[Rfam]
RNA sequence: CACUCAUCCAGAGGGGCAGAGGGAUACGGCCCGAUGAAGCCCCGGCAACCACUGAUGAUGAUCUCUUUCUCGUUGUAGAGGCCUAUGCCUCCGACCGCGAGGCCGAUCAUCAGCAGGUGCCCCGUCCGUCCCGCUCCGGCGGGAAAGAUGAGAC
Numbered sequence: 001c002a003c004u005c006a007u008c009c010a011g012a013g014g015g016g017c018a019g020a021g022g023g024a025u026a027c028g029g030c031c032c033g034a035u036g037a038a039g040c041c042c043c044g045g046c047a048a049c050c051a052c053u054g055a056u057g058a059u060g061a062u063c064u065c066u067u068u069c070u071c072g073u074u075g076u077a078g079a080g081g082c083c084u085a086u087g088c089c090u091c092c093g094a095c096c097g098c099g100a101g102g103c104c105g106a107u108c109a110u111c112a113g114c115a116g117g118u119g120c121c122c123c124g125u126c127c128g129u130c131c132c133g134c135u136c137c138g139g140c141g142g143g144a145a146a147g148a149u150g151a152g153a154c
Stems, first nucleotide, its partner, number of pairs: 003152006013043005021032003026129004044121004049117002052113008125146001130143005